This 128-nucleotide sequence from Photobacterium proteolyticum belongs to the Rfam family "t44 RNA".
This family consists of a number of bacterial RNA genes of between 135 and 170 bases in length. The t44 gene has been identified in several species of enteric bacteria but homologs have also been identified in Pseudomonas and Coxiella species. The t44 gene is found between the map and rpsB genes in all species in the full alignment apart from Shigella flexneri. The function of this RNA is unknown.
By type it is a small RNA.
The base pairs follow the family's consensus structure, which was predicted with LocARNA.
[Rfam]
RNA sequence: CUAAACAUUUAUUAAUCACUCACACAUAUCGGCACAUUCUCCGGGGUGCUCAUCAGUCUUUCGCGAGGCUGCAGGUUUGCAGUAAUGCAAAUCAUGGGUCGGUAGAAUGGGAUAUGUGGACGCCUAAC
Numbered sequence: 001c002u003a004a005a006c007a008u009u010u011a012u013u014a015a016u017c018a019c020u021c022a023c024a025c026a027u028a029u030c031g032g033c034a035c036a037u038u039c040u041c042c043g044g045g046g047u048g049c050u051c052a053u054c055a056g057u058c059u060u061u062c063g064c065g066a067g068g069c070u071g072c073a074g075g076u077u078u079g080c081a082g083u084a085a086u087g088c089a090a091a092u093c094a095u096g097g098g099u100c101g102g103u104a105g106a107a108u109g110g111g112a113u114a115u116g117u118g119g120a121c122g123c124c125u126a127a128c
Base pairs, nucleotide, nucleotide: 023118024117025116026115027114028113029112030111035109036108037107038106039105041102042101043100048099049098050097051096052095
Dot-bracket structure: ......................((((((((....(((((.(((....(((((..........................................))))))))..))))).))))))))..........